[Rfam]
Guanidine-II riboswitch aptamer (mini-ykkC): a 46-nucleotide sequence from Rhodopseudomonas palustris. The literature on the family includes a 2007 paper in Nucleic Acids Res by Weinberg et al., "Identification of 22 candidate structured RNAs in bacteria using the CMfinder comparative genomics pipeline". Its family is annotated with regulation of gene expression in the Gene Ontology. The family's consensus secondary structure is taken from published work. NCBI's taxonomy places the organism under Bacteria, Pseudomonadota, Hyphomicrobiales, Rhodopseudomonas, Rhodopseudomonas palustris. It is one of the family's seed sequences.
RNA sequence: GCUCGAGGACGACCUCCCAAUCACCCUUUCGGCCGGGACGACCCGG
Numbered sequence: 001g002c003u004c005g006a007g008g009a010c011g012a013c014c015u016c017c018c019a020a021u022c023a024c025c026c027u028u029u030c031g032g033c034c035g036g037g038a039c040g041a042c043c044c045g046g
Stems, first nucleotide, its partner, number of pairs: 001018001005016004033046005